[Rfam]
RNA: Alphaproteobacterial ar14
RNA sequence: CCUUGUCGAAGCGCUGUACCUCCUCCCACGGCGCAAGACGCCGAUCGGUUCACUCCUCCUCCCAGGACCGAUCUAGUUCAGAGACCCCGAUGCACCUCCUCCCGCAUCGGGGUCUUUCU
Dot-bracket structure: ......(...((((((............))))))..).....(((((((((.............))))))))).........(((((((((((..........))))))))))).....